[Rfam]
RNA: U4 spliceosomal RNA
Organism: Mandrillus leucophaeus
RNA sequence: AGCUUUGCGCAGUGGCAGUAUCUUAGCCAAUGAGGUCUAUCUGAGGCGUGAUUAUUGCUAAUUGAAAAUUUUACCCAAUACCCUGCCGUGAUGACCUGCAAUAUAGUUGGCAUUGGCAAUUUUUGACAGUCUUUACAGAGA
Numbered sequence: 001a002g003c004u005u006u007g008c009g010c011a012g013u014g015g016c017a018g019u020a021u022c023u024u025a026g027c028c029a030a031u032g033a034g035g036u037c038u039a040u041c042u043g044a045g046g047c048g049u050g051a052u053u054a055u056u057g058c059u060a061a062u063u064g065a066a067a068a069u070u071u072u073a074c075c076c077a078a079u080a081c082c083c084u085g086c087c088g089u090g091a092u093g094a095c096c097u098g099c100a101a102u103a104u105a106g107u108u109g110g111c112a113u114u115g116g117c118a119a120u121u122u123u124u125g126a127c128a129g130u131c132u133u134u135a136c137a138g139a140g141a
Base pairs, nucleotide, nucleotide: 020052021051022050024048026047027046028045034042035041085117086116087115088113089112090111092109093108094107095106130141131140132139133138